RNA sequence: GGGGACCUAUGGGGCCCUAUAACAUGAGGUGGGUUUCACCCACCCUACACAUAGGCGAAUUCAAGGAUUCGCCACUGCUAAACGGAAGACAGAAA
Numbered sequence: 001g002g003g004g005a006c007c008u009a010u011g012g013g014g015c016c017c018u019a020u021a022a023c024a025u026g027a028g029g030u031g032g033g034u035u036u037c038a039c040c041c042a043c044c045c046u047a048c049a050c051a052u053a054g055g056c057g058a059a060u061u062c063a064a065g066g067a068u069u070c071g072c073c074a075c076u077g078c079u080a081a082a083c084g085g086a087a088g089a090c091a092g093a094a095a
Stems, first nucleotide, its partner, number of pairs: 001018004006014003028073009
L2-Alphaproteobacteria ribosomal protein leader: a 95-nucleotide RNA sequence. It is one of the family's seed sequences. It is annotated as a cis-regulatory leader.